[Rfam]
RNA sequence: GAGACACCCCUCUGGGGCUAGACUUGCUUCGAUGGGGCCUUGGUGCUCACUGAGUCUGCCCCCUGAGUGUGUCUUU
Numbered sequence: 001g002a003g004a005c006a007c008c009c010c011u012c013u014g015g016g017g018c019u020a021g022a023c024u025u026g027c028u029u030c031g032a033u034g035g036g037g038c039c040u041u042g043g044u045g046c047u048c049a050c051u052g053a054g055u056c057u058g059c060c061c062c063c064u065g066a067g068u069g070u071g072u073c074u075u076u
Stems, first nucleotide, its partner, number of pairs: 001075007009067001011065001014062005021056003029053003033049004037044002